[Rfam]
RNA sequence: GAGUCUGAGUGCAGUGGUGUUUACAACUAAUUGAUCACAACUACUUUACAGAUUUCUUUGUUCCUUCUCCAGUACCACUGCUUCACUUGGCUAACCUAAA
Numbered sequence: 001g002a003g004u005c006u007g008a009g010u011g012c013a014g015u016g017g018u019g020u021u022u023a024c025a026a027c028u029a030a031u032u033g034a035u036c037a038c039a040a041c042u043a044c045u046u047u048a049c050a051g052a053u054u055u056c057u058u059u060g061u062u063c064c065u066u067c068u069c070c071a072g073u074a075c076c077a078c079u080g081c082u083u084c085a086c087u088u089g090g091c092u093a094a095c096c097u098a099a100a
Stems, first nucleotide, its partner, number of pairs: 002092004007088002011084001013079006025062003029058002
RNA: Y RNA